[Rfam]
RNA sequence: UGCUACCAAACCCUAUCUCCACCUCCACGUGGUGACCGCUGGGAGUUCUUUCUUAAUGAAAAAGUGCCGACGGAGAAGG
Numbered sequence: 001u002g003c004u005a006c007c008a009a010a011c012c013c014u015a016u017c018u019c020c021a022c023c024u025c026c027a028c029g030u031g032g033u034g035a036c037c038g039c040u041g042g043g044a045g046u047u048c049u050u051u052c053u054u055a056a057u058g059a060a061a062a063a064g065u066g067c068c069g070a071c072g073g074a075g076a077a078g079g
Stems, first nucleotide, its partner, number of pairs: 012079003016075001018073002021033003045065003049061003053058001
Annotation:
A member of the RNA family "drz-agam-1 ribozyme" from Hermetia illucens, 79 nucleotides long. The family's consensus secondary structure is taken from published work. The match comes from Rfam's covariance-model search (48 bits).